[Rfam]
RNA sequence: CAGAUCGAAACGGGAGAACCGGCAACAGCCGGUGCCGAAGGAGCAACCGCCCCGGAAACUCUCAGGCCGCAGGGACCGUUUUGCAUCU
Numbered sequence: 001c002a003g004a005u006c007g008a009a010a011c012g013g014g015a016g017a018a019c020c021g022g023c024a025a026c027a028g029c030c031g032g033u034g035c036c037g038a039a040g041g042a043g044c045a046a047c048c049g050c051c052c053c054g055g056a057a058a059c060u061c062u063c064a065g066g067c068c069g070c071a072g073g074g075a076c077c078g079u080u081u082u083g084c085a086u087c088u
Base pairs, nucleotide, nucleotide: 006083007082008081009080010079011078012077013076019032020031021030022029034067035066036065037063038062041061042060043059047055048054
Shown here is an 88-nucleotide RNA sequence from Roseovarius indicus, a member of the family "Glycine riboswitch aptamer". The pairing is the family consensus, mapped onto this sequence. It scores 58 bits against the family's covariance model. For this family Rfam cites "In Vivo Behavior of the Tandem Glycine Riboswitch in Bacillus subtilis" (Babina et al., MBio, 2017).